[Rfam]
RNA sequence: UGGCCCCUUUUUUGCUCACCCUGGACCAUCACAUGUCCUUGGUGGAUAACACAGGGGGGCAUAAUAAUAUAACAUCUCUCAUAAACCUGUAGUGAAGGAACAAUUCCUCACUGCGGAUCCUGUCGGGAGAAACAUUU
Numbered sequence: 001u002g003g004c005c006c007c008u009u010u011u012u013u014g015c016u017c018a019c020c021c022u023g024g025a026c027c028a029u030c031a032c033a034u035g036u037c038c039u040u041g042g043u044g045g046a047u048a049a050c051a052c053a054g055g056g057g058g059g060c061a062u063a064a065u066a067a068u069a070u071a072a073c074a075u076c077u078c079u080c081a082u083a084a085a086c087c088u089g090u091a092g093u094g095a096a097g098g099a100a101c102a103a104u105u106c107c108u109c110a111c112u113g114c115g116g117a118u119c120c121u122g123u124c125g126g127g128a129g130a131a132a133c134a135u136u137u
Stems, first nucleotide, its partner, number of pairs: 003060008014050001016048001019045001021042004068131001076129005087116007095108001097106001099105002
RNA: Small nucleolar RNA SNORA26
Organism: Pleuronectes platessa